[Rfam]
RNA sequence: UAUGGAGCCGUGUUAAUCGGACGCGACAGGGAUGAUGAACAUAGGGGUUUUUCCGAUUUCUCCCUAUGGCCAACGGAAUGGCAGGCGAGCAUCCUACCUGUCCGGCUC
Number, nucleotide and partner (000 for none) at each position: 001u000002a000003u000004g000005g000006a107007g106008c105009c104010g000011u023012g022013u021014u020015a000016a000017u000018c000019g000020g014021a013022c012023g011024c000025g102026a101027c100028a099029g098030g097031g000032a000033u000034g093035a092036u091037g090038a000039a000040c068041a067042u066043a065044g064045g063046g062047g000048u000049u000050u000051u000052u000053c000054c000055g000056a000057u000058u000059u000060c000061u000062c046063c045064c044065u043066a042067u041068g040069g082070c081071c080072a000073a000074c000075g000076g000077a000078a000079u000080g071081g070082c069083a000084g000085g000086c000087g000088a000089g000090c037091a036092u035093c034094c000095u000096a000097c030098c029099u028100g027101u026102c025103c000104g009105g008106c007107u006108c000